RNA sequence: UUUGGCAUUGGCCUUACGCGCCAUAAUACCAUUACCCACCGCAUGUAACAGGUGAGUCUUACCCAAACCGGUACCGCCAUA
Numbered sequence: 001u002u003u004g005g006c007a008u009u010g011g012c013c014u015u016a017c018g019c020g021c022c023a024u025a026a027u028a029c030c031a032u033u034a035c036c037c038a039c040c041g042c043a044u045g046u047a048a049c050a051g052g053u054g055a056g057u058c059u060u061a062c063c064c065a066a067a068c069c070g071g072u073a074c075c076g077c078c079a080u081a
Base pairs, nucleotide, nucleotide: 005042006041009038010037011036016032018030020029051078052077053076054075056074057073061072062071063070
Dot-bracket structure: ....((..(((....(.(.(........)).)...)))..))........((((.((...(((......)))))))))...
The family of this 81-nucleotide RNA sequence from Yersinia ruckeri is "antisense RNA of dnaA mRNA". The family's consensus secondary structure was predicted with RNAfold. Taxonomically the source falls in Yersinia (Bacteria, Pseudomonadati, Enterobacterales, Yersiniaceae).